[Rfam]
RNA sequence: UCGACUGUACUUGCACAGGAGCACUUCUACAGUGAUUCCGCUUGCACACGCAAUAGUCUUCAGAACACCUUGCAAUCAUUGAUGAUGAUUGAGUCCCAUCCUCUCAGUGGAAAUUGCUUCACUGUUUGAUGAAUGGGGAGAGGAUGGGUAAGCUGAAGUGAU
Numbered sequence: 001u002c003g004a005c006u007g008u009a010c011u012u013g014c015a016c017a018g019g020a021g022c023a024c025u026u027c028u029a030c031a032g033u034g035a036u037u038c039c040g041c042u043u044g045c046a047c048a049c050g051c052a053a054u055a056g057u058c059u060u061c062a063g064a065a066c067a068c069c070u071u072g073c074a075a076u077c078a079u080u081g082a083u084g085a086u087g088a089u090u091g092a093g094u095c096c097c098a099u100c101c102u103c104u105c106a107g108u109g110g111a112a113a114u115u116g117c118u119u120c121a122c123u124g125u126u127u128g129a130u131g132a133a134u135g136g137g138g139a140g141a142g143g144a145u146g147g148g149u150a151a152g153c154u155g156a157a158g159u160g161a162u
Stems, first nucleotide, its partner, number of pairs: 002040002006035001008034004017028004043067002047063001050060001076161005095148004100143006108121004122136004
ACEA small nucleolar RNA U3: a 162-nucleotide sequence from Symbiodinium natans. About the family: Small nucleolar RNAs (snoRNAs) are involved in the processing and modification of rRNA in the nucleolus. There are two main classes of snoRNAs: the box C/D class, and the box H/ACA class. U3 snoRNA is a member of the box C/D class. Indeed, the box C/D element is a subset of the six short sequence elements found in all U3 snoRNAs, namely boxes A, A', B, C, C', and D. The U3 snoRNA secondary structure is characterised by a small 5' domain (with boxes A and A'), and a larger 3' domain (with boxes B, C, C', and D), the two domains being linked by a single-stranded hinge. The literature on the family includes a 1999 paper in Mol Cell Biol by Speckmann et al., "Nuclear retention elements of U3 small nucleolar RNA". Taxonomically the source falls in Symbiodinium (Eukaryota, Sar, Dinophyceae, Symbiodiniaceae). The family's RNA type in Rfam is C/D-box small nucleolar RNA. Clan: U3 clan. Rfam 15.1 lists 2,156 matches to the family in 132 species.